Notes: Bacteriophage Diversity-Generating Retroelement RNA: a 129-nucleotide RNA. Pairs were carried over by alignment from the consensus structure, which is taken from published work.
RNA sequence: GCUCUGCACUUACCACUUGGCGGUGCAGGCAGAUCAUACAGAGUGGUCAGCUUGGUUGUCCUGCUUCGGCAAAUACACUUAGGGGUCUGGUAGAACGUAGAGUAGCAGAAAGCGAAAUACGGAGCCAGU
Number, nucleotide and partner (000 for none) at each position: 001g030002c029003u000004c028005u027006g026007c025008a024009c023010u022011u000012a000013c020014c019015a000016c000017u000018u000019g014020g013021c000022g010023g009024u008025g007026c006027a005028g004029g002030c001031a000032g000033a000034u000035c000036a000037u000038a000039c000040a000041g000042a000043g000044u000045g000046g000047u000048c000049a000050g000051c000052u000053u000054g000055g000056u000057u000058g000059u000060c000061c000062u071063g070064c069065u000066u000067c000068g000069g064070c063071a062072a000073a000074u000075a000076c000077a000078c000079u000080u000081a000082g000083g000084g000085g129086u000087c128088u127089g126090g125091u124092a000093g000094a000095a000096c121097g120098u119099a118100g000101a000102g000103u000104a000105g113106c112107a000108g000109a000110a000111a000112g106113c105114g000115a000116a000117a000118u099119a098120c097121g096122g000123a000124g091125c090126c089127a088128g087129u085